About this RNA:
The family of this 195-nucleotide RNA sequence from Medicago truncatula is "MIR2619 microRNA precursor family". Pairs were carried over by alignment from the consensus structure, which was predicted with RNAalifold. Taxonomically the source falls in Medicago (Eukaryota, Tracheophyta, Spermatophyta, rosids).
RNA sequence: AAAAAAAAGUAUUGGAUCUUUGGUAGUUUUGGCCCCCAAGACCACUUUUGACUUAGUAUUCGCUGACGUGGCACCCACAAUGGUCGACACGUGGCACCUCACUUAAGGGAUGUGAGUGUCACGUCAGCGAAGACUAAGUCAAAAGUGGCAUUGGGGGCCAAAACUGAAAAAGAUCUAAUACAUAGGGGACUGUUU
Numbered sequence: 001a002a003a004a005a006a007a008a009g010u011a012u013u014g015g016a017u018c019u020u021u022g023g024u025a026g027u028u029u030u031g032g033c034c035c036c037c038a039a040g041a042c043c044a045c046u047u048u049u050g051a052c053u054u055a056g057u058a059u060u061c062g063c064u065g066a067c068g069u070g071g072c073a074c075c076c077a078c079a080a081u082g083g084u085c086g087a088c089a090c091g092u093g094g095c096a097c098c099u100c101a102c103u104u105a106a107g108g109g110a111u112g113u114g115a116g117u118g119u120c121a122c123g124u125c126a127g128c129g130a131a132g133a134c135u136a137a138g139u140c141a142a143a144a145g146u147g148g149c150a151u152u153g154g155g156g157g158c159c160a161a162a163a164c165u166g167a168a169a170a171a172g173a174u175c176u177a178a179u180a181c182a183u184a185g186g187g188g189a190c191u192g193u194u195u
Stems, first nucleotide, its partner, number of pairs: 007183001009181013024166016066124002069121006076114001